[Rfam]
RNA sequence: GGGUUUUCUGUUGUGCUUGAUGUAACCAUGUGGUUCUCUGCUCACUCUGAGGCAUGGUUCUGUCAAACACCACGGAACGUCU
Numbered sequence: 001g002g003g004u005u006u007u008c009u010g011u012u013g014u015g016c017u018u019g020a021u022g023u024a025a026c027c028a029u030g031u032g033g034u035u036c037u038c039u040g041c042u043c044a045c046u047c048u049g050a051g052g053c054a055u056g057g058u059u060c061u062g063u064c065a066a067a068c069a070c071c072a073c074g075g076a077a078c079g080u081c082u
Base pairs, nucleotide, nucleotide: 001082002081003080004079006077007076008075009074013070014069015068017066018065019064024059025058026057027056028055029054030053031052